[Rfam]
Shown here is a 154-nucleotide sequence from Amborella trichopoda, a member of the family "MIR8565 microRNA precursor family". The organism belongs to Amborella, within Eukaryota.
RNA sequence: CUCAUACCUAUGUGUGUAGGACCCCAAAGAAUCACCAUCAAAUUUGACAUAGAUCUCUAAAAAAGUUAUCGCAUCAGUGUGGGACUUGACUUGUUUAGAGAUCUGUGUCAAAUUUAAUGGUGAUCCUUUGGGAUCCUACACAUAUGGGUGUGGG
Numbered sequence: 001c002u003c004a005u006a007c008c009u010a011u012g013u014g015u016g017u018a019g020g021a022c023c024c025c026a027a028a029g030a031a032u033c034a035c036c037a038u039c040a041a042a043u044u045u046g047a048c049a050u051a052g053a054u055c056u057c058u059a060a061a062a063a064a065g066u067u068a069u070c071g072c073a074u075c076a077g078u079g080u081g082g083g084a085c086u087u088g089a090c091u092u093g094u095u096u097a098g099a100g101a102u103c104u105g106u107g108u109c110a111a112a113u114u115u116a117a118u119g120g121u122g123a124u125c126c127u128u129u130g131g132g133a134u135c136c137u138a139c140a141c142a143u144a145u146g147g148g149u150g151u152g153g154g
Stems, first nucleotide, its partner, number of pairs: 002153012015140007023132006031124002034121005040115022063092006069082005